A member of the RNA family "SAM riboswitch aptamer (S box leader)" from Fusobacterium sp. FSA-380-WT-3A, 89 nucleotides long.
RNA sequence: UAUCCAUCAAGAGAAACUGAGGGACUGGCCCUAUGAUGUUUCAGCAACCUACUUUGUAAAGUGUGGUGCUAAUUCCAUGUAGAUGGUUU
Numbered sequence: 001u002a003u004c005c006a007u008c009a010a011g012a013g014a015a016a017c018u019g020a021g022g023g024a025c026u027g028g029c030c031c032u033a034u035g036a037u038g039u040u041u042c043a044g045c046a047a048c049c050u051a052c053u054u055u056g057u058a059a060a061g062u063g064u065g066g067u068g069c070u071a072a073u074u075c076c077a078u079g080u081a082g083a084u085g086g087u088u089u
Stems, first nucleotide, its partner, number of pairs: 002088001004086005013042005021031003026077003043070004048066002050063004074081001
Record summary:
The organism belongs to Fusobacterium, within Bacteria. It scores 70 bits against the family's covariance model. Pairs were carried over by alignment from the consensus structure, which is taken from published work.